Rhizobiales sRNA Atu_C7: a 138-nucleotide sequence from Sinorhizobium saheli.

RNA sequence: CGGAUACUGAAGCAAUAACCGGAUGAUGAAGCAGCAUGGGUUCUCCUGGCGUGUCCUGGUGCAGCAGAUGUUCCCUCCCUCAUCUGUGUGCGAUGCGCCCUCCUAGCCUCGCUCGUCGACCGACCGGCGAGGCUUUUU
Number, nucleotide and partner (000 for none) at each position: 001c000002g000003g000004a000005u000006a000007c000008u000009g000010a000011a000012g000013c000014a000015a000016u000017a000018a000019c000020c000021g000022g000023a000024u000025g000026a000027u000028g000029a000030a000031g000032c000033a000034g000035c000036a000037u000038g000039g000040g000041u000042u000043c000044u000045c000046c000047u000048g099049g098050c097051g096052u095053g094054u093055c092056c000057u000058g000059g000060u000061g000062c000063a000064g087065c086066a085067g084068a083069u082070g081071u000072u000073c000074c000075c000076u000077c000078c000079c000080u000081c070082a069083u068084c067085u066086g065087u064088g000089u000090g000091c000092g055093a054094u053095g052096c051097g050098c049099c048100c000101u000102c000103c000104u000105a000106g133107c132108c131109u130110c129111g128112c127113u126114c000115g000116u123117c122118g000119a000120c000121c000122g117123a116124c000125c000126g113127g112128c111129g110130a109131g108132g107133c106134u000135u000136u000137u000138u000